[Rfam]
RNA: Selenocysteine transfer RNA
RNA sequence: GCUUCUGUGAGCCUGCCUGGCGGUAGGAAUAGACUUCAAAUCUAUUGCGGCAGAGAUGCCGAGUUGUUCGAUUCAACCAUGGGAGC
Dot-bracket structure: (((((((((..((((((....))))))((((((.......)))))).(((((....))))).((((.......)))))))))))))